Rfam assigns this 75-nucleotide sequence from Sulfitobacter marinus to the family "L2-Alphaproteobacteria ribosomal protein leader".
RNA sequence: GGGGACCUUCGGGGCCCUAUAACCAUCUCGACCCCAUUUAUGGGCGUCGGGCACAAGCAAAACGGAAGACAGAAA
Numbered sequence: 001g002g003g004g005a006c007c008u009u010c011g012g013g014g015c016c017c018u019a020u021a022a023c024c025a026u027c028u029c030g031a032c033c034c035c036a037u038u039u040a041u042g043g044g045c046g047u048c049g050g051g052c053a054c055a056a057g058c059a060a061a062a063c064g065g066a067a068g069a070c071a072g073a074a075a
Base pairs, nucleotide, nucleotide: 001018002017003016004015006014007013008012028050029049030048031047
The family's consensus secondary structure is taken from published work.